Notes:
This 109-nucleotide RNA from Zea mays belongs to the Rfam family "MIR5565 microRNA precursor family". The family's consensus secondary structure was predicted with RNAalifold. Taxonomically the source falls in Zea (Eukaryota, Tracheophyta, Magnoliopsida, Andropogonodae).
RNA sequence: ACUCUAGUAUUGAUCCCAAUCCACUUGUAUUGAGGUGGAUUGGAGUGUAACUUAAACUAAUUUACACCCCAAUCCACCUCAACACAUGUGGAUUGGGGUCAAUACUAGG
Numbered sequence: 001a002c003u004c005u006a007g008u009a010u011u012g013a014u015c016c017c018a019a020u021c022c023a024c025u026u027g028u029a030u031u032g033a034g035g036u037g038g039a040u041u042g043g044a045g046u047g048u049a050a051c052u053u054a055a056a057c058u059a060a061u062u063u064a065c066a067c068c069c070c071a072a073u074c075c076a077c078c079u080c081a082a083c084a085c086a087u088g089u090g091g092a093u094u095g096g097g098g099u100c101a102a103u104a105c106u107a108g109g
Base pairs, nucleotide, nucleotide: 004108005107006106007105008104009103010102011101012100013099014098016096017095018094019093020092021091022090023089024088026086027085028084030082031081032080035077036076037075038074039073040072041071042070043069045067046066047065